[Rfam]
RNA sequence: AAAAAAGCAGGGGUCUGUUGCCUGUGUGAACAGGUCUCUCGUAAACUUCAGGGAAAUCAAUUUCAAUGUUAUUGGGUGAACCCCUGGUUUUUUCUGUGGCAGAAGGUUCAGUAAACAAUGGAACAUUU
Numbered sequence: 001a002a003a004a005a006a007g008c009a010g011g012g013g014u015c016u017g018u019u020g021c022c023u024g025u026g027u028g029a030a031c032a033g034g035u036c037u038c039u040c041g042u043a044a045a046c047u048u049c050a051g052g053g054a055a056a057u058c059a060a061u062u063u064c065a066a067u068g069u070u071a072u073u074g075g076g077u078g079a080a081c082c083c084c085u086g087g088u089u090u091u092u093u094c095u096g097u098g099g100c101a102g103a104a105g106g107u108u109c110a111g112u113a114a115a116c117a118a119u120g121g122a123a124c125a126u127u128u
Stems, first nucleotide, its partner, number of pairs: 005048003011037002014034004062122004067117004077110006

The family of this 128-nucleotide sequence from Salix viminalis is "Small nucleolar RNA snoR74".
Lineage of the source: Eukaryota > Streptophytina > Mesangiospermae > rosids > Salix.
The family's consensus secondary structure was predicted with WAR.
It scores 108 bits against the family's covariance model.